[Rfam]
RNA sequence: AGGUAGAUGCACCCUGAUGACUCCCCUCAACGCCUAUUUCUCCUUCGCGUUGAGGGUUUUUUCU
Numbered sequence: 001a002g003g004u005a006g007a008u009g010c011a012c013c014c015u016g017a018u019g020a021c022u023c024c025c026c027u028c029a030a031c032g033c034c035u036a037u038u039u040c041u042c043c044u045u046c047g048c049g050u051u052g053a054g055g056g057u058u059u060u061u062u063c064u
Base pairs, nucleotide, nucleotide: 002013003012004011024056025055026054027053028052029051030050031049032048033047
Nitrogen stress-induced RNA 1: a 64-nucleotide RNA from Coleofasciculus chthonoplastes. Lineage of the source: Bacteria > Bacillati > Cyanobacteriota > Coleofasciculus > Coleofasciculus chthonoplastes. Rfam 15.1 lists 962 matches to the family in 163 species.